[Rfam]
Nucleotides: 212
Base pairs, nucleotide, nucleotide: 004053005052006051007050068079069078071076095130097128098127099126149184150183151182152181153180155178156177157176160173161172162171163170195210196209197208198207199206
Number, partner (000 for none) and nucleotide at each position: 001000c002000a003000g004053u005052a006051g007050g008000c009000c010000g011000u012000u013000c014000c015000c016000g017000g018000g019000g020000a021000u022000g023000u024000u025000c026000c027000a028000g029000g030000g031000g032000c033000a034000c035000g036000a037000c038000c039000g040000u041000g042000g043000a044000c045000a046000g047000a048000c049000c050007c051006c052005u053004a054000c055000g056000c057000g058000g059000c060000u061000c062000g063000c064000c065000u066000g067000a068079a069078c070000c071076c072000a073000u074000a075000u076071g077000a078069g079068u080000g081000a082000a083000c084000g085000c086000u087000g088000c089000c090000g091000a092000u093000c094000a095130c096000u097128c098127g099126a100000u101000c102000g103000g104000c105000a106000g107000g108000c109000g110000a111000a112000c113000u114000g115000g116000c117000g118000a119000c120000c121000u122000a123000g124000g125000c126099u127098c128097g129000c130095g131000c132000c133000a134000g135000a136000a137000c138000g139000u140000c141000g142000c143000u144000u145000c146000a147000a148000c149184g150183g151182c152181c153180c154000u155178c156177g157176a158000c159000c160173g161172g162171g163170a164000c165000g166000g167000g168000c169000a170163u171162c172161c173160c174000g175000u176157u177156c178155g179000a180153g181152g182151g183150c184149c185000u186000c187000a188000c189000c190000g191000g192000c193000a194000a195210g196209g197208a198207a199206g200000g201000a202000a203000u204000c205000g206199c207198u208197u209196c210195c211000u212000c